[Rfam]
RNA sequence: CACUGUAGUGUCAAAGUGCUUACAGUGCAGGUAGUUCAAUAUAAUCUACUGCAGUGGAGGCACUUCAAGCUUUACCGU
Number, nucleotide and partner (000 for none) at each position: 001c000002a000003c000004u000005g075006u074007a073008g072009u000010g070011u069012c000013a000014a065015a064016g063017u062018g061019c060020u059021u058022a000023c056024a055025g000026u053027g052028c051029a000030g050031g049032u048033a047034g046035u000036u000037c000038a000039a000040u000041a000042u000043a000044a000045u000046c034047u033048a032049c031050u030051g028052c027053a026054g000055u024056g023057g000058a021059g020060g019061c018062a017063c016064u015065u014066c000067a000068a000069g011070c010071u000072u008073u007074a006075c005076c000077g000078u000